[Rfam]
RNA: FMN riboswitch aptamer (RFN element)
Organism: Vibrio ishigakensis
RNA sequence: ACAAGACUUCAGGGCGGGGCGGAAUUCCCCACCGGUGGUAAAAAUCAGCUCAAAUGAGCGUGAUUUUGAGCCCACGAGCGCUUUCGAUUACUCGAAAGGUCAGCAGAUCUGGUGAGAACCCAGAGCCGACGGUUAUAGUCCGGAUGAAAGAAGUAAAUU
Dot-bracket structure: .....(((((......(((.......))).[[((((((...............................[[))))..((.......................))...(((((.......)))))]])).(((.....]]))).......))))).....